[Rfam]
RNA sequence: CAAUGAGGUAGAGGUCGCGAGAAUCAUUAACCCUGUGGAGUGAAGCAAACAUGUCGAAACAGGACUAGGGAGGAUCGCCGAAAUAUGCUCUUUUUUGCUUGAAGAGUAUGUUGGGACGCAAGUUAAGAGCUUGCGGACUGUCUUAGCAGUGAUGCUAAGUUGCGCUAUGUUUUGU
Numbered sequence: 001c002a003a004u005g006a007g008g009u010a011g012a013g014g015u016c017g018c019g020a021g022a023a024u025c026a027u028u029a030a031c032c033c034u035g036u037g038g039a040g041u042g043a044a045g046c047a048a049a050c051a052u053g054u055c056g057a058a059a060c061a062g063g064a065c066u067a068g069g070g071a072g073g074a075u076c077g078c079c080g081a082a083a084u085a086u087g088c089u090c091u092u093u094u095u096u097g098c099u100u101g102a103a104g105a106g107u108a109u110g111u112u113g114g115g116a117c118g119c120a121a122g123u124u125a126a127g128a129g130c131u132u133g134c135g136g137a138c139u140g141u142c143u144u145a146g147c148a149g150u151g152a153u154g155c156u157a158a159g160u161u162g163c164g165c166u167a168u169g170u171u172u173u174g175u
Base pairs, nucleotide, nucleotide: 006170008168009167010166011165017078018077019076020075024071025070032063033062034061035060036059082112083111084110085109086108087107088106089105090104091103092102093101113139114138117135118134119133120132121131122130123129142159143158144157145156146155147154
Shown here is a 175-nucleotide sequence from Candidatus Enterococcus wittei, a member of the family "Lysine riboswitch aptamer". The family's consensus secondary structure is taken from published work. Taxonomically the source falls in Enterococcus (Bacteria, Bacillati, Lactobacillales, Enterococcaceae).